A member of the RNA family "Mitochondrion-encoded tmRNA" from Plasmopara halstedii, 76 nucleotides long. NCBI's taxonomy places the organism under Eukaryota, Oomycota, Peronosporomycetes, Peronosporales, Plasmopara. The family has 11 seed sequences and 97 matches in Rfam 15.1. A reference for the family is Hafez et al. (2013), "A second eukaryotic group with mitochondrion-encoded tmRNA: in silico identification and experimental confirmation", RNA Biol.
RNA sequence: UAAAUGGACCCAAAGGCGGUAUUUGGUAUCUCCAUUUAAUUUUUAAUAAGGGGAUAAUAAUAAGUGUUGACAUUUA
Numbered sequence: 001u002a003a004a005u006g007g008a009c010c011c012a013a014a015g016g017c018g019g020u021a022u023u024u025g026g027u028a029u030c031u032c033c034a035u036u037u038a039a040u041u042u043u044u045a046a047u048a049a050g051g052g053g054a055u056a057a058u059a060a061u062a063a064g065u066g067u068u069g070a071c072a073u074u075u076a
Stems, first nucleotide, its partner, number of pairs: 001076006010026005027056007